Small nucleolar RNA snoR31/Z110/Z27: a 100-nucleotide RNA sequence from Salix dunnii. A search with the family's covariance model found it, with a score of 57 bits. Rfam 15.1 lists 571 matches to the family in 198 species. This family contains several related snoRNAs including R31, Z27 and Z110. On this family, see Barneche et al., J Mol Biol 2001: "Identification of 66 box C/D snoRNAs in Arabidopsis thaliana: extensive gene duplications generated multiple isoforms predicting new ribosomal RNA 2'-O-methylation sites".

RNA sequence: CGAACAAAAGAGAUGAUGAAAUCAGAAAAUCUUAGGACACCUUCUGACACUGUACAAUGCUGUGCUGUGUAUGAGAAAGAUUUUUAUUUCUGAUUGUUCU
Numbered sequence: 001c002g003a004a005c006a007a008a009a010g011a012g013a014u015g016a017u018g019a020a021a022u023c024a025g026a027a028a029a030u031c032u033u034a035g036g037a038c039a040c041c042u043u044c045u046g047a048c049a050c051u052g053u054a055c056a057a058u059g060c061u062g063u064g065c066u067g068u069g070u071a072u073g074a075g076a077a078a079g080a081u082u083u084u085u086a087u088u089u090c091u092g093a094u095u096g097u098u099c100u
Stems, first nucleotide, its partner, number of pairs: 002099006045054002